[Rfam]
RNA sequence: UUCUUGUUGGAUAAUAAUUGUCAUCUAUCAUGUUCUGAUUGGUCAAUGAAAACAACAAUAUAUUUCAUCUUUCACGGAGUUUACAUCUAAUAAGAACGUGACACGUGGCAGUCAUCAUCC
Numbered sequence: 001u002u003c004u005u006g007u008u009g010g011a012u013a014a015u016a017a018u019u020g021u022c023a024u025c026u027a028u029c030a031u032g033u034u035c036u037g038a039u040u041g042g043u044c045a046a047u048g049a050a051a052a053c054a055a056c057a058a059u060a061u062a063u064u065u066c067a068u069c070u071u072u073c074a075c076g077g078a079g080u081u082u083a084c085a086u087c088u089a090a091u092a093a094g095a096a097c098g099u100g101a102c103a104c105g106u107g108g109c110a111g112u113c114a115u116c117a118u119c120c
Stems, first nucleotide, its partner, number of pairs: 020109004026103001029100003033096004038091005
A member of the RNA family "MIR1520 microRNA precursor family" from Glycine soja, 120 nucleotides long.